[Rfam]
Nucleotides: 084
Stems, first nucleotide, its partner, number of pairs: 001084034036049004
Number, partner (000 for none) and nucleotide at each position: 001084u002083a003082u004081u005080a006079g007078g008077u009076u010075g011074g012073u013072g014071c015070a016069a017068a018067a019066g020065u021064a022063a023062u024061u025060g026059u027058g028057g029056u030055u031054u032053u033052g034051g035000g036049u037048a038047u039046u040000a041000a042000a043000a044000g045000g046039a047038a048037u049036g050000g051034c052033c053032a054031a055030a056029g057028c058027c059026a060025c061024a062023a063022u064021u065020a066019c067018u068017u069016u070015u071014g072013c073012a074011c075010c076009a077008a078007c079006c080005u081004a082003a083002u084001a
mir-548 microRNA precursor family: an 84-nucleotide RNA from Callithrix jacchus. Rfam links the family to the GO terms RISC complex and miRNA-mediated post-transcriptional gene silencing. Taxonomically the source falls in Callithrix (Eukaryota, Chordata, Tetrapoda, Platyrrhini). A search with the family's covariance model found it, with a score of 94 bits.